A member of the RNA family "mir-3158 microRNA precursor family" from Homo sapiens, 81 nucleotides long. Pairs were carried over by alignment from the consensus structure, which was predicted with RNAalifold. Rfam links the family to the GO terms RISC complex and miRNA-mediated post-transcriptional gene silencing. It is one of the family's seed sequences.
RNA sequence: AUUCAGGCCGGUCCUGCAGAGAGGAAGCCCUUCUGCUUACAGGUAUUGGAAGGGCUUCCUCUCUGCAGGACCGGCCUGAAU
Numbered sequence: 001a002u003u004c005a006g007g008c009c010g011g012u013c014c015u016g017c018a019g020a021g022a023g024g025a026a027g028c029c030c031u032u033c034u035g036c037u038u039a040c041a042g043g044u045a046u047u048g049g050a051a052g053g054g055c056u057u058c059c060u061c062u063c064u065g066c067a068g069g070a071c072c073g074g075c076c077u078g079a080a081u
Stems, first nucleotide, its partner, number of pairs: 001081033036043002